[Rfam]
Shown here is a 62-nucleotide sequence from Megalops atlanticus, a member of the family "mir-728 microRNA precursor family". Its family is annotated with miRNA-mediated post-transcriptional gene silencing and RISC complex in the Gene Ontology. The source organism's lineage runs through Eukaryota, Gnathostomata, Actinopteri, Teleostei and Megalops. It scores 81 bits against the family's covariance model.

RNA sequence: AAAUGUAGUAGACUAUAAGUAUACGUGUGGCACAUGGAGUAUACUAAGUACACUACGUUUUC
Numbered sequence: 001a002a003a004u005g006u007a008g009u010a011g012a013c014u015a016u017a018a019g020u021a022u023a024c025g026u027g028u029g030g031c032a033c034a035u036g037g038a039g040u041a042u043a044c045u046a047a048g049u050a051c052a053c054u055a056c057g058u059u060u061u062c
Stems, first nucleotide, its partner, number of pairs: 001060009012049003018045007